[Rfam]
RNA sequence: ACAUUUUCGCCACGGAGAGGUUACUAACUGGUAAAUAUGAACACACCUUCCGUCCUAAUCAGUUUGAAAACUGGGUUCCCGACUUUUAGUUGGGUCUUUUUCACAUUCAUUUUUGGCAUUUCCGAGAAUGCUAGCUUGCUAGUUUUUCUUGGAGCGGUUUUCGGGGGCUUUUACCGUCUCCCCCGCGAGGCCAACCAACU
Numbered sequence: 001a002c003a004u005u006u007u008c009g010c011c012a013c014g015g016a017g018a019g020g021u022u023a024c025u026a027a028c029u030g031g032u033a034a035a036u037a038u039g040a041a042c043a044c045a046c047c048u049u050c051c052g053u054c055c056u057a058a059u060c061a062g063u064u065u066g067a068a069a070a071c072u073g074g075g076u077u078c079c080c081g082a083c084u085u086u087u088a089g090u091u092g093g094g095u096c097u098u099u100u101u102c103a104c105a106u107u108c109a110u111u112u113u114u115g116g117c118a119u120u121u122c123c124g125a126g127a128a129u130g131c132u133a134g135c136u137u138g139c140u141a142g143u144u145u146u147u148c149u150u151g152g153a154g155c156g157g158u159u160u161u162c163g164g165g166g167g168c169u170u171u172u173a174c175c176g177u178c179u180c181c182c183c184c185g186c187g188a189g190g191c192c193a194a195c196c197a198a199c200u
Stems, first nucleotide, its partner, number of pairs: 001038001003036004057076001059074004078094007122152007131142004156192005162185006
The record is a 200-nucleotide RNA sequence from Phytophthora fragariae, which matches "U2 spliceosomal RNA" in Rfam.
Rfam 15.1 lists 71,512 matches to the family in 2,642 species.
The organism belongs to Phytophthora, within Eukaryota.
From the family's description: U2 is a small nuclear RNA (snRNA) component of the spliceosome (involved in pre-mRNA splicing).
The base pairs follow the family's consensus structure, which is taken from published work.